[Rfam]
RNA sequence: UGGUGGCUCCAACCGGAACUAAAGGUCCCUGCACAACGGCUCCUGCGCCAGGCGUUGUGGCAGGGGACCUUUAGUCCCGGUUGGAGCCACCAA
Numbered sequence: 001u002g003g004u005g006g007c008u009c010c011a012a013c014c015g016g017a018a019c020u021a022a023a024g025g026u027c028c029c030u031g032c033a034c035a036a037c038g039g040c041u042c043c044u045g046c047g048c049c050a051g052g053c054g055u056u057g058u059g060g061c062a063g064g065g066g067a068c069c070u071u072u073a074g075u076c077c078c079g080g081u082u083g084g085a086g087c088c089a090c091c092a093a
Base pairs, nucleotide, nucleotide: 003090004089005088006087007086008085009084010083011082012081013080014079015078016077018075019074020073021072022071023070024069025068026067027066029064030063032059033058034057036055037054043047